Rfam assigns this 61-nucleotide sequence from Comamonas kerstersii to the family "nhaA-I RNA". About the family: Acidobacteria, Alphaproteobacteria, Betaproteobacteria and Gammaproteobacteria, Verrucomicrobia, cand. division NC10. The source organism's lineage runs through Bacteria, Pseudomonadati, Pseudomonadota, Betaproteobacteria and Comamonas.

RNA sequence: GGGUGCCCACCACAUCAGGUGGUGAUGGCAGGUCAUUCAGGUACAGGUCGGGCCGCCUGUA
Numbered sequence: 001g002g003g004u005g006c007c008c009a010c011c012a013c014a015u016c017a018g019g020u021g022g023u024g025a026u027g028g029c030a031g032g033u034c035a036u037u038c039a040g041g042u043a044c045a046g047g048u049c050g051g052g053c054c055g056c057c058u059g060u061a
Stems, first nucleotide, its partner, number of pairs: 005029003008024005042061007